[Rfam]
RNA: psbNH RNA
Organism: Synechococcus sp. WH 7805
RNA sequence: GGGUGGAGUUCAGUCCCGAUACUCUAGGGGUCCCGGCCCGGAAGAGGCCGAUCCUGUC
Numbered sequence: 001g002g003g004u005g006g007a008g009u010u011c012a013g014u015c016c017c018g019a020u021a022c023u024c025u026a027g028g029g030g031u032c033c034c035g036g037c038c039c040g041g042a043a044g045a046g047g048c049c050g051a052u053c054c055u056g057u058c
Stems, first nucleotide, its partner, number of pairs: 027055005034050005